[Rfam]
The record is an 86-nucleotide RNA from Medicago truncatula, which matches "MIR2617 microRNA precursor family" in Rfam.

RNA sequence: UUGAAGUGUAGCAUACCCGUUGUGGAAUUACUCUGAUGAAAUAUUUGUUAUUUAAUUACUUUUGGGUAACGGGGUGUUACAUAUUU
Numbered sequence: 001u002u003g004a005a006g007u008g009u010a011g012c013a014u015a016c017c018c019g020u021u022g023u024g025g026a027a028u029u030a031c032u033c034u035g036a037u038g039a040a041a042u043a044u045u046u047g048u049u050a051u052u053u054a055a056u057u058a059c060u061u062u063u064g065g066g067u068a069a070c071g072g073g074g075u076g077u078u079a080c081a082u083a084u085u086u
Base pairs, nucleotide, nucleotide: 003086004085005084006082007081008080009079010078011077012076013075014074016073017072018071019070020069021068
Annotation: The family has 3 seed sequences and 1,174 matches in Rfam 15.1. A search with the family's covariance model found it, with a score of 75 bits. Taxonomically the source falls in Medicago (Eukaryota, Embryophyta, Gunneridae, fabids).